[Rfam]
RNA sequence: AUGUGCGGUAGAGGCGCGAAUUGAAUGAGUAGUUGUCGUUGGGGUGAUGCCGAUGAACGAUGAUGAAAGGUCUGUUCGCCGAAGUGACAGCGUCGAUCAAAACCUGUUGCUGGGGUUGAACUCGAAGAGGGUCAACACUGCCAUAGUCUAUAAUUUUAACUAUGGAGCGCUACUGUAGGG
Numbered sequence: 001a002u003g004u005g006c007g008g009u010a011g012a013g014g015c016g017c018g019a020a021u022u023g024a025a026u027g028a029g030u031a032g033u034u035g036u037c038g039u040u041g042g043g044g045u046g047a048u049g050c051c052g053a054u055g056a057a058c059g060a061u062g063a064u065g066a067a068a069g070g071u072c073u074g075u076u077c078g079c080c081g082a083a084g085u086g087a088c089a090g091c092g093u094c095g096a097u098c099a100a101a102a103c104c105u106g107u108u109g110c111u112g113g114g115g116u117u118g119a120a121c122u123c124g125a126a127g128a129g130g131g132u133c134a135a136c137a138c139u140g141c142c143a144u145a146g147u148c149u150a151u152a153a154u155u156u157u158a159a160c161u162a163u164g165g166a167g168c169g170c171u172a173c174u175g176u177a178g179g180g
Stems, first nucleotide, its partner, number of pairs: 006175006016079006023072002032064008083111008093101001112139002115136005121130002141165007
A member of the RNA family "Lysine riboswitch aptamer" from Vibrio proteolyticus, 180 nucleotides long. Its family is annotated with lysine biosynthetic process in the Gene Ontology. Riboswitches are metabolite binding domains within certain messenger RNAs that serve as precision sensors for their corresponding targets. Allosteric rearrangement of mRNA structure is mediated by ligand binding, and this results in modulation of gene expression. This family includes riboswitches that sense lysine in a number of genes involved in lysine metabolism, including lysC. The base pairs follow the family's consensus structure, which is taken from published work.